Record summary: Shown here is a 117-nucleotide RNA from Ensete ventricosum, a member of the family "mir-166 microRNA precursor family". A search with the family's covariance model found it, with a score of 64 bits. Rfam describes the family as follows. This family represents the plant microRNA (miRNA) precursor mir-166. Lineage of the source: Eukaryota > Embryophyta > Mesangiospermae > Petrosaviidae > Ensete. For this family Rfam cites "microRNAs: tiny regulators with great potential" (Ambros, Cell, 2001).
RNA sequence: GGUGUUUGGAAUGAAGUUUGAUCCAAGAUCCUUCCACAAGCUUUCCCCUCUUUAUAUGUUAUAGGGUUUCUUGUUUGGUUUGGAUGUGAUCUCGGACCAGGCUUCAUUCCACACACC
Numbered sequence: 001g002g003u004g005u006u007u008g009g010a011a012u013g014a015a016g017u018u019u020g021a022u023c024c025a026a027g028a029u030c031c032u033u034c035c036a037c038a039a040g041c042u043u044u045c046c047c048c049u050c051u052u053u054a055u056a057u058g059u060u061a062u063a064g065g066g067u068u069u070c071u072u073g074u075u076u077g078g079u080u081u082g083g084a085u086g087u088g089a090u091c092u093c094g095g096a097c098c099a100g101g102c103u104u105c106a107u108u109c110c111a112c113a114c115a116c117c
Stems, first nucleotide, its partner, number of pairs: 001117005007111007016102005024094001026092004
Dot-bracket structure: (((((.(((((((..(((((...(.((((...........................................................)))).)...)))))..))))))).)))))